A member of the RNA family "Small nucleolar RNA SNORD91 family" from Hirundo rustica, 93 nucleotides long. It scores 62 bits against the family's covariance model. Rfam 15.1 lists 977 matches to the family in 495 species.

RNA sequence: GCAGGAAGCCUGUGAUGUCUUAGCCAUGGUGUCUGAACCUGGCUGAAGGAUUCUUGUGAAGACUCACUCCUAGGCUCUGAGGCUUCCUAGGGC
Numbered sequence: 001g002c003a004g005g006a007a008g009c010c011u012g013u014g015a016u017g018u019c020u021u022a023g024c025c026a027u028g029g030u031g032u033c034u035g036a037a038c039c040u041g042g043c044u045g046a047a048g049g050a051u052u053c054u055u056g057u058g059a060a061g062a063c064u065c066a067c068u069c070c071u072a073g074g075c076u077c078u079g080a081g082g083c084u085u086c087c088u089a090g091g092g093c
Stems, first nucleotide, its partner, number of pairs: 004087007